[Rfam]
RNA sequence: AAGGCAUAAUGAGGAUGAAUUUAAAAAUCGUCUGAUUAUUAUGAUGAUUCAUAACCUCCUACUCAUUCUGA
Numbered sequence: 001a002a003g004g005c006a007u008a009a010u011g012a013g014g015a016u017g018a019a020u021u022u023a024a025a026a027a028u029c030g031u032c033u034g035a036u037u038a039u040u041a042u043g044a045u046g047a048u049u050c051a052u053a054a055c056c057u058c059c060u061a062c063u064c065a066u067u068c069u070g071a
Base pairs, nucleotide, nucleotide: 006066007065009063028047029046032043
RNA: Small nucleolar RNA Z105
Organism: Corchorus olitorius